[Rfam]
RNA: Purine riboswitch aptamer
Organism: Peribacillus psychrosaccharolyticus
RNA sequence: AUUCAUAAUACAUAUAUUCAUCGUAUAAUCUUGGGGAUAUGGCCCAAAAGUUUCUACUGAGCUGCCGUUAACAGCUUGACUACGAUGUAAAGGAUAGGUCUC
Numbered sequence: 001a002u003u004c005a006u007a008a009u010a011c012a013u014a015u016a017u018u019c020a021u022c023g024u025a026u027a028a029u030c031u032u033g034g035g036g037a038u039a040u041g042g043c044c045c046a047a048a049a050g051u052u053u054c055u056a057c058u059g060a061g062c063u064g065c066c067g068u069u070a071a072c073a074g075c076u077u078g079a080c081u082a083c084g085a086u087g088u089a090a091a092g093g094a095u096a097g098g099u100c101u102c
Stems, first nucleotide, its partner, number of pairs: 019087007029049001031047005058078007